[Rfam]
RNA sequence: GAAGGUCCUCGGUAGUGGCUCCCGGAUCGUGGAUCCGUGGGCCUCGAUCGAUGACCGCC
Numbered sequence: 001g002a003a004g005g006u007c008c009u010c011g012g013u014a015g016u017g018g019c020u021c022c023c024g025g026a027u028c029g030u031g032g033a034u035c036c037g038u039g040g041g042c043c044u045c046g047a048u049c050g051a052u053g054a055c056c057g058c059c
Stems, first nucleotide, its partner, number of pairs: 001059001004056004009051005017043005023037006